[Rfam]
RNA sequence: UCGGUGUAACAAGGUGGCCUAGCAGUGUGUUUUCUAGAAGACUUGCACCCUGUCAGACCAUACUUGUUUCAACG
Numbered sequence: 001u002c003g004g005u006g007u008a009a010c011a012a013g014g015u016g017g018c019c020u021a022g023c024a025g026u027g028u029g030u031u032u033u034c035u036a037g038a039a040g041a042c043u044u045g046c047a048c049c050c051u052g053u054c055a056g057a058c059c060a061u062a063c064u065u066g067u068u069u070c071a072a073c074g
Stems, first nucleotide, its partner, number of pairs: 005071002008068006014061004019056002022053004027048004
Shown here is a 74-nucleotide RNA from Papilio xuthus, a member of the family "mir-2755 microRNA precursor family". Pairs were carried over by alignment from the consensus structure, which was predicted with RNAalifold. Rfam links the family to the GO terms RISC complex and miRNA-mediated post-transcriptional gene silencing. NCBI's taxonomy places the organism under Eukaryota, Pterygota, Amphiesmenoptera, Glossata, Papilio.